[Rfam]
RNA: mir-130 microRNA precursor family
RNA sequence: UGUUGUCCAUCGCCCUUUUUCUGUUGCACUACUGCACACACUGGCAUGAGCAGUGCAAUAUUAAAAGGGCAUUGGCUGAUA
Numbered sequence: 001u002g003u004u005g006u007c008c009a010u011c012g013c014c015c016u017u018u019u020u021c022u023g024u025u026g027c028a029c030u031a032c033u034g035c036a037c038a039c040a041c042u043g044g045c046a047u048g049a050g051c052a053g054u055g056c057a058a059u060a061u062u063a064a065a066a067g068g069g070c071a072u073u074g075g076c077u078g079a080u081a
Stems, first nucleotide, its partner, number of pairs: 001081003005076001007075003012070008022060009